RNA sequence: AACAGUUAUGGAGAUAUAGUUCCGACCACACUAUUUGGUAAGAUAGUUGGCAGCGCCUGUUGCAUCUGUGGCGUACUGGUCAUUGCUCUGCCCAUUCCUAUCAUUGGUGAGUAUA
Numbered sequence: 001a002a003c004a005g006u007u008a009u010g011g012a013g014a015u016a017u018a019g020u021u022c023c024g025a026c027c028a029c030a031c032u033a034u035u036u037g038g039u040a041a042g043a044u045a046g047u048u049g050g051c052a053g054c055g056c057c058u059g060u061u062g063c064a065u066c067u068g069u070g071g072c073g074u075a076c077u078g079g080u081c082a083u084u085g086c087u088c089u090g091c092c093c094a095u096u097c098c099u100a101u102c103a104u105u106g107g108u109g110a111g112u113a114u115a
Stems, first nucleotide, its partner, number of pairs: 002114001004112001007109003010105002013102004019096001021094001037077004049063001

Potassium channel RNA editing signal: a 115-nucleotide RNA from Oppiella nova. Rfam 15.1 lists 14,095 matches to the family in 1,000 species. The base pairs follow the family's consensus structure, which is taken from published work. Taxonomically the source falls in Oppiella (Eukaryota, Opisthokonta, Arachnida, Acari).